[Rfam]
Nucleotides: 131
Base pairs, nucleotide, nucleotide: 003129006126007125008124009123010122017029018028019027031111032110033101034100035065036064037063038062060099061098068077069076070075081097082096083095084094085093103114104113105112
Number, partner (000 for none) and nucleotide at each position: 001000u002000g003129u004000c005000u006126g007125u008124u009123u010122c011000a012000g013000g014000g015000c016000g017029a018028g019027g020000u021000g022000u023000a024000a025000u026000u027019c028018c029017u030000c031111a032110c033101u034100g035065g036064u037063a038062g039000u040000g041000a042000u043000g044000u045000g046000c047000g048000a049000a050000g051000g052000a053000g054000c055000a056000a057000u058000a059000a060099g061098u062038c063037u064036a065035c066000g067000a068077g069076c070075c071000g072000a073000a074000a075070g076069g077068c078000c079000g080000a081097u082096c083095u084094g085093g086000u087000u088000a089000g090000a091000a092000u093085c094084c095083a096082g097081a098061a099060c100034c101033a102000a103114c104113g105112g106000u107000a108000u109000a110032g111031u112105c113104c114103g115000g116000a117000u118000g119000a120000a121000a122010g123009a124008a125007a126006u127000u128000a129003g130000c131000a
Shown here is a 131-nucleotide RNA from Eubacterium callanderi, a member of the family "FMN riboswitch aptamer (RFN element)". From the family's description: The RFN element is a highly conserved domain that is found frequently in the 5'-untranslated regions of prokaryotic mRNAs that encode for flavin mononucleotide (FMN) biosynthesis and transport proteins.